[Rfam]
RNA sequence: UGAGAUCGGCGCACGUGCUUCAAUACCUGUUAGAACAAAAGGAUAUAAUGUUAUCAAUGUCCAGUGGCAUGUUUAAGCCAUUGAAACUUUAAAAAUUUGCAUUUCUCCUACACUUUGUGGACUCUGGGGGAGAGUUUUAU
Numbered sequence: 001u002g003a004g005a006u007c008g009g010c011g012c013a014c015g016u017g018c019u020u021c022a023a024u025a026c027c028u029g030u031u032a033g034a035a036c037a038a039a040a041g042g043a044u045a046u047a048a049u050g051u052u053a054u055c056a057a058u059g060u061c062c063a064g065u066g067g068c069a070u071g072u073u074u075a076a077g078c079c080a081u082u083g084a085a086a087c088u089u090u091a092a093a094a095a096u097u098u099g100c101a102u103u104u105c106u107c108c109u110a111c112a113c114u115u116u117g118u119g120g121a122c123u124c125u126g127g128g129g130g131a132g133a134g135u136u137u138u139a140u
Stems, first nucleotide, its partner, number of pairs: 008021002011018001031139006041079002044076001045073001048070006104133006111126002116121001
Source information:
This 140-nucleotide RNA sequence from Streptococcus pneumoniae belongs to the Rfam family "Streptococcus sRNA SpF22". NCBI's taxonomy places the organism under Bacteria, Bacillota, Bacilli, Streptococcaceae, Streptococcus pneumoniae. Pairs were carried over by alignment from the consensus structure, which was predicted with mfold. A reference for the family is Mann et al. (2012), "Control of virulence by small RNAs in Streptococcus pneumoniae", PLoS Pathog. It is one of the family's seed sequences. By type it is a small RNA.